[Rfam]
A member of the RNA family "SAH (S-adenosyl-L-homocysteine) riboswitch aptamer" from Streptosporangium roseum, 90 nucleotides long.
NCBI's taxonomy places the organism under Bacteria, Bacillati, Actinomycetes, Streptosporangiaceae, Streptosporangium roseum.

RNA sequence: CAGGUCGAGAGGCGCUGCAACGGGUUCAGGCCCGCCACGCUCGGCCUUGAUCCUCUCUCCUUGACCUUUCCUCAAGGGCGCCUCCCAUAA
Numbered sequence: 001c002a003g004g005u006c007g008a009g010a011g012g013c014g015c016u017g018c019a020a021c022g023g024g025u026u027c028a029g030g031c032c033c034g035c036c037a038c039g040c041u042c043g044g045c046c047u048u049g050a051u052c053c054u055c056u057c058u059c060c061u062u063g064a065c066c067u068u069u070c071c072u073c074a075a076g077g078g079c080g081c082c083u084c085c086c087a088u089a090a
Stems, first nucleotide, its partner, number of pairs: 002047007021034005